About this RNA:
The family of this 88-nucleotide RNA from Brugia malayi is "mir-67 microRNA precursor family". Rfam's curators put it in the seed alignment. Its family is annotated with miRNA-mediated post-transcriptional gene silencing and RISC complex in the Gene Ontology. The base pairs follow the family's consensus structure, which was predicted with RNAalifold. The family has 33 seed sequences and 196 matches in Rfam 15.1.
Nucleotides: 088
Stems, first nucleotide, its partner, number of pairs: 008080002012077009023065002026062003032058003
Number, partner (000 for none) and nucleotide at each position: 001000a002000u003000g004000g005000c006000g007000u008080u009079c010000a011000g012077c013076u014075u015074a016073c017072u018071c019070a020069g021000c022000u023065g024064g025000u026062u027061g028060u029000a030000u031000g032058a033057u034056g035000u036000u037000a038000u039000c040000c041000g042000g043000a044000a045000u046000u047000c048000c049000u050000u051000c052000a053000g054000u055000u056034c057033a058032u059000c060028a061027c062026a063000a064024c065023c066000u067000c068000c069020u070019u071018g072017a073016g074015u075014a076013a077012g078000c079009g080008g081000a082000c083000u084000g085000c086000u087000u088000u